[Rfam]
RNA sequence: GUCCCGCUGGUGUAAUGGAUAGCAUACGAUCCUUCUAAGUUUGCGGUCCUGGUUCGAUCCCAGGGCGGGAUA
Dot-bracket structure: (((((((..((((........)))).(((.(.......).)))....(((((.......)))))))))))).